[Rfam]
RNA sequence: AUUAGUCUUCAGGGCAAGGUGUGAGUCCUUACCGGUGGUUACAGCCCACGCGCCGAAAUUUUUUGGCUGACUUGGUGAAAGUCCGAGGCCGACAGUUAGAGUCUGGAUGGAAGAAGAUCAAU
Number, nucleotide and partner (000 for none) at each position: 001a000002u000003u120004a000005g118006u117007c116008u115009u114010c113011a000012g000013g000014g000015c000016a000017a029018g028019g027020u000021g000022u000023g000024a000025g000026u000027c019028c018029u017030u000031a102032c101033c091034g090035g049036u048037g047038g046039u000040u000041a000042c000043a000044g089045c088046c038047c037048a036049c035050g000051c000052g067053c066054c065055g000056a000057a000058a000059u000060u000061u000062u000063u000064u000065g054066g053067c052068u000069g000070a000071c087072u086073u085074g084075g083076u000077g000078a000079a000080a000081g000082u000083c075084c074085g073086a072087g071088g045089c044090c034091g033092a000093c105094a104095g103096u000097u000098a000099g000100a000101g032102u031103c095104u094105g093106g000107a000108u000109g000110g000111a000112a000113g010114a009115a008116g007117a006118u005119c000120a003121a000122u000